The record is a 96-nucleotide RNA sequence from Clostridium tagluense, which matches "Guanidine-I riboswitch aptamer" in Rfam.
A reference for the family is Barrick et al. (2004), "New RNA motifs suggest an expanded scope for riboswitches in bacterial genetic control", Proc Natl Acad Sci U S A.
About the family: This family represents a conserved RNA structure found upstream of the ykkC and yxkD genes in Bacillus subtilis and related genes in other bacteria. The function of this family is unclear although it has been suggested that it may function to switch on efflux pumps and detoxification systems in response to harmful environmental molecules.
NCBI's taxonomy places the organism under Bacteria, Bacillati, Bacillota, Clostridia, Clostridium.
Rfam links the family to the GO term regulation of gene expression.
The pairing is the family consensus, mapped onto this sequence.
[Rfam]
RNA sequence: AGUUUAGCUUUCUAGGGUUCCGCAGUUUAUAACUAGCUGGUCCGAGAGAAGGCGCACAGGUAACUGUGUACACGGAAGGAUAAAAGCCUGGGAGAU
Number, nucleotide and partner (000 for none) at each position: 001a000002g000003u000004u000005u000006a000007g053008c052009u051010u050011u049012c048013u000014a000015g043016g042017g000018u000019u000020c040021c039022g037023c000024a034025g033026u032027u031028u000029a000030u000031a027032a026033c025034u024035a000036g000037c022038u000039g021040g020041u000042c016043c015044g000045a000046g000047a000048g012049a011050a010051g009052g008053c007054g069055c068056a067057c066058a065059g064060g000061u000062a000063a000064c059065u058066g057067u056068g055069u054070a000071c091072a000073c094074g000075g000076a000077a089078g088079g087080a000081u000082a000083a000084a000085a000086g000087c079088c078089u077090g000091g071092g000093a000094g073095a000096u000